[Rfam]
RNA sequence: AGAGGUUGAGGCCAUAGCAGAAACGCUCACGGCACGGCCAUGUCAGAUUCCAACAAAUUUUUGUGAAUUCUGCU
Numbered sequence: 001a002g003a004g005g006u007u008g009a010g011g012c013c014a015u016a017g018c019a020g021a022a023a024c025g026c027u028c029a030c031g032g033c034a035c036g037g038c039c040a041u042g043u044c045a046g047a048u049u050c051c052a053a054c055a056a057a058u059u060u061u062u063g064u065g066a067a068u069u070c071u072g073c074u
Base pairs, nucleotide, nucleotide: 010039011038012037013036016074017073018072019071020070021069022068025033044063045062046061047058048057049056
Shown here is a 74-nucleotide RNA sequence from Alligator mississippiensis, a member of the family "Mammalian CPEB3 ribozyme". It scores 35 bits against the family's covariance model. The family's consensus secondary structure is taken from published work. The mammalian CPEB3 ribozyme is a self cleaving RNA located in the second intron of the CPEB3 gene which belongs to a family of genes regulating messenger RNA polyadenylation.